Shown here is a 45-nucleotide RNA from Mytilus coruscus, a member of the family "ES036 (CssrF) sRNA". The literature on the family includes a 2015 paper in BMC Genomics by Rau et al., "Differential expression of small RNAs under chemical stress and fed-batch fermentation in E. coli".
RNA sequence: AAAUUUAUGUAAAUUCAAUAAAUUACAGAUGUAAUAUGUAUACCU
Numbered sequence: 001a002a003a004u005u006u007a008u009g010u011a012a013a014u015u016c017a018a019u020a021a022a023u024u025a026c027a028g029a030u031g032u033a034a035u036a037u038g039u040a041u042a043c044c045u
Base pairs, nucleotide, nucleotide: 004033006031008027009026010025011024012023